Rfam assigns this 179-nucleotide RNA sequence from Saezia sanguinis to the family "FMN riboswitch aptamer (RFN element)". NCBI's taxonomy places the organism under Bacteria, Pseudomonadati, Pseudomonadota, Betaproteobacteria, Saezia. Its family is annotated with FMN binding in the Gene Ontology.
[Rfam]
RNA sequence: AUACGUCUUCAGGGCGGGGUGAAAAUCCCCACCGGCGGUAGAUGGUGUUAUGCACCAUAAGCCCGCGAGCGCUCAGUUGAGGGAAUUCAGACAUAUUUUCUGCAUUGCUUCGCUGGGGUCAAGCAGAUCUGGUCAGAUGCCAGAGCCGACGGUUAUAGUCCGGAUGAAAGAAGAAGAGU
Numbered sequence: 001a002u003a004c005g006u007c008u009u010c011a012g013g014g015c016g017g018g019g020u021g022a023a024a025a026u027c028c029c030c031a032c033c034g035g036c037g038g039u040a041g042a043u044g045g046u047g048u049u050a051u052g053c054a055c056c057a058u059a060a061g062c063c064c065g066c067g068a069g070c071g072c073u074c075a076g077u078u079g080a081g082g083g084a085a086u087u088c089a090g091a092c093a094u095a096u097u098u099u100c101u102g103c104a105u106u107g108c109u110u111c112g113c114u115g116g117g118g119u120c121a122a123g124c125a126g127a128u129c130u131g132g133u134c135a136g137a138u139g140c141c142a143g144a145g146c147c148g149a150c151g152g153u154u155a156u157a158g159u160c161c162g163g164a165u166g167a168a169a170g171a172a173g174a175a176g177a178g179u
Base pairs, nucleotide, nucleotide: 004176006174007173008172009171010170017029018028019027031159032158033148034147035066036065037064038063061146062145069124070123128144129143130142131141132140150162151161152160